A member of the RNA family "mraW RNA" from Mycolicibacterium thermoresistibile, 101 nucleotides long. The family's consensus secondary structure is taken from published work. The family's RNA type in Rfam is cis-regulatory element.
RNA sequence: CCGGUCCCUUGAAUCGUGGCCUCUGCCCGAACCGGCCCUGGCGUACUUCCCCGACGCCAGGUCCGUCUCGGACAGGGACCUCGGUGCAGGGGAUCUCUGCU
Numbered sequence: 001c002c003g004g005u006c007c008c009u010u011g012a013a014u015c016g017u018g019g020c021c022u023c024u025g026c027c028c029g030a031a032c033c034g035g036c037c038c039u040g041g042c043g044u045a046c047u048u049c050c051c052c053g054a055c056g057c058c059a060g061g062u063c064c065g066u067c068u069c070g071g072a073c074a075g076g077g078a079c080c081u082c083g084g085u086g087c088a089g090g091g092g093a094u095c096u097c098u099g100c101u
Stems, first nucleotide, its partner, number of pairs: 010088002013085004018080002021077005027071004033065003037061008
Dot-bracket structure: .........((.((((.((.(((((.((((..(((.((((((((.........)))))))).)))..)))).))))).)).)))).)).............